[Rfam]
A member of the RNA family "Small nucleolar RNA SNORD91 family" from Otolemur garnettii, 92 nucleotides long. It is annotated as a C/D-box small nucleolar RNA. The source organism's lineage runs through Eukaryota, Opisthokonta, Dipnotetrapodomorpha, Galagidae and Otolemur. On this family, see Huttenhofer et al., EMBO J 2001: "RNomics: an experimental approach that identifies 201 candidates for novel, small, non-messenger RNAs in mouse". Rfam links the family to the GO terms nucleolus and RNA processing. Pairs were carried over by alignment from the consensus structure.
RNA sequence: UAGAGAAGUCAAUGAUGACUUUGAAAAAAUGUCUGAACCUGUCUGAAGCAUCUCAGUGAUGCAAACCUUUUGUGUCUGAGACUUCUCUGAGA
Numbered sequence: 001u002a003g004a005g006a007a008g009u010c011a012a013u014g015a016u017g018a019c020u021u022u023g024a025a026a027a028a029a030u031g032u033c034u035g036a037a038c039c040u041g042u043c044u045g046a047a048g049c050a051u052c053u054c055a056g057u058g059a060u061g062c063a064a065a066c067c068u069u070u071u072g073u074g075u076c077u078g079a080g081a082c083u084u085c086u087c088u089g090a091g092a
Base pairs, nucleotide, nucleotide: 004086005085006084007083008082009081010080